[Rfam]
RNA sequence: GCUUUAGGGAGGGAGAGCGGCUUGGGUUCUGCGUGGUGUGUGUGGACUUUCCGUGUGGUGUGCGAGGCGCGUGUGAGCCUUGUGUGAGUGGACGCGCGAGUGUGUGAACGUGCGCGCGUGGAGCGUGUUAGGUGAGUGUGUGCGCCCGCCCCUGAACCCUUCCCUCCGCCUACACCUUGAUCUUAUUUGAUCGGGUCGUGAGCCCAGCCCCGCCGGGCCGACCCGAAAUGAAAAGCUCCCCUCCUGCGAAGCCCCUUCUCGGGGCGCUGUGCAGCGAGGCCCCUAGGCGGCGGCAACGCUGCGGUCCCCGGGGUCCCGGAAUUGGCUCUGCGGGGCCCGGUGCUCAGAAGUGAUGAAUUGAUCAGAUAGACGAGGCCGGGCUUGUCCCGGGCCACUGAUUAUCGAGGCGAUUCUGAUCUGG
Dot-bracket structure: ....................................................((.(.(((((.....))))).................(.((((....)))).)...((..(((((.((............)).)))))..)).........).))............................(((..((((.(((.(..(((.((...)).))))))).)))).....)))......................((((((((.(((..((.(((..(((((.....)).)))..))).))))))))))))).......((((((((....))).)))))...((((......((((((.............((((.((......)).))))..............))))))...)))).

Small Cajal body-specific RNA 2: a 421-nucleotide RNA from Sapajus apella. By type it is a small Cajal body RNA. The family has 20 seed sequences and 612 matches in Rfam 15.1.